[Rfam]
RNA sequence: UGCGAUGUGUGCAUUGCAUUGCGACGGGUUACAUCACUGGUCAUAACAUGAUGUAACCCAACGCAGCAUGAUGUAAGCAUCGUG
Numbered sequence: 001u002g003c004g005a006u007g008u009g010u011g012c013a014u015u016g017c018a019u020u021g022c023g024a025c026g027g028g029u030u031a032c033a034u035c036a037c038u039g040g041u042c043a044u045a046a047c048a049u050g051a052u053g054u055a056a057c058c059c060a061a062c063g064c065a066g067c068a069u070g071a072u073g074u075a076a077g078c079a080u081c082g083u084g
Stems, first nucleotide, its partner, number of pairs: 002083007010075005015068003020065004026059011038048002
Dot-bracket structure: .(((((((.((((((((..((((..(((((((((((.((.......)))))))))))))..)))))))..))))).))))))).
RNA: mir-1397 microRNA precursor family
Organism: Ophiophagus hannah